The family of this 72-nucleotide RNA sequence from Filimonas zeae is "tRNA". Pairs were carried over by alignment from the consensus structure, which is taken from published work. Gene Ontology term of the family: triplet codon-amino acid adaptor activity.

RNA sequence: GGCGAUGUAGUUAAAUUGGAAAAACCCCUACAUGGCAUGUAGGAAUUGCAAGUUCGAGCCUCGCCAUCGUCA
Numbered sequence: 001g002g003c004g005a006u007g008u009a010g011u012u013a014a015a016u017u018g019g020a021a022a023a024a025c026c027c028c029u030a031c032a033u034g035g036c037a038u039g040u041a042g043g044a045a046u047u048g049c050a051a052g053u054u055c056g057a058g059c060c061u062c063g064c065c066a067u068c069g070u071c072a
Stems, first nucleotide, its partner, number of pairs: 001071007010025003027043005048064002051061002